[Rfam]
Annotation: Rfam assigns this 344-nucleotide sequence from Legionella drancourtii to the family "Legionella RNA 17". About the family: Identified by strand specific sequencing of the transcriptional response during broth growth and during infection inside the host. The match comes from Rfam's covariance-model search (108 bits). The organism belongs to Legionella drancourtii, within Bacteria. The family's consensus secondary structure was predicted with RNAfold. On this family, see Weissenmayer et al., PLoS One 2011: "Sequencing illustrates the transcriptional response of Legionella pneumophila during infection and identifies seventy novel small non-coding RNAs".

RNA sequence: GUAAAGGCCGUCAGAGGUAACAUCAGCGUCACUGCAUACACUGCUGCCAGCAUGCAUGGAUGUAAUUUUCUUAUUAACAUAGCGAUCUCCUCGGAUGCGGGCCAUAAAAUAAGCCAUCUUCUUUUUUGUUUUUAUAAUAUUGAAAUGCAAUUUAAGUGCCAGAGGCAAAGGUGAUUACUUUAUUAUUGCGAUAAGCGGAAUAGCAUCCGCUCGAUUUUUUCUUUGUUAAAGUAAUACAUACAACACCUUAAACCGAUGACAACCAAGCUAAAGGAGGGAUUGCUUUUCCCCUUCGUCUUAUUUCGAAGUAUAGACCGUUUUGUUUAAUUCCGCCGCUAUGUCCU
Numbered sequence: 001g002u003a004a005a006g007g008c009c010g011u012c013a014g015a016g017g018u019a020a021c022a023u024c025a026g027c028g029u030c031a032c033u034g035c036a037u038a039c040a041c042u043g044c045u046g047c048c049a050g051c052a053u054g055c056a057u058g059g060a061u062g063u064a065a066u067u068u069u070c071u072u073a074u075u076a077a078c079a080u081a082g083c084g085a086u087c088u089c090c091u092c093g094g095a096u097g098c099g100g101g102c103c104a105u106a107a108a109a110u111a112a113g114c115c116a117u118c119u120u121c122u123u124u125u126u127u128g129u130u131u132u133u134a135u136a137a138u139a140u141u142g143a144a145a146u147g148c149a150a151u152u153u154a155a156g157u158g159c160c161a162g163a164g165g166c167a168a169a170g171g172u173g174a175u176u177a178c179u180u181u182a183u184u185a186u187u188g189c190g191a192u193a194a195g196c197g198g199a200a201u202a203g204c205a206u207c208c209g210c211u212c213g214a215u216u217u218u219u220u221c222u223u224u225g226u227u228a229a230a231g232u233a234a235u236a237c238a239u240a241c242a243a244c245a246c247c248u249u250a251a252a253c254c255g256a257u258g259a260c261a262a263c264c265a266a267g268c269u270a271a272a273g274g275a276g277g278g279a280u281u282g283c284u285u286u287u288c289c290c291c292u293u294c295g296u297c298u299u300a301u302u303u304c305g306a307a308g309u310a311u312a313g314a315c316c317g318u319u320u321u322g323u324u325u326a327a328u329u330c331c332g333c334c335g336c337u338a339u340g341u342c343c344u
Base pairs, nucleotide, nucleotide: 001288003286004285005284007283008282010280011279012278016103017102018101021097022096023095024094026092028090033056034055035054036053037052058071059070060069062066105177106176107175110169113166114165115164118162119161128159129158131156132155133154291308292307293306294305295304314337316335317334321332322331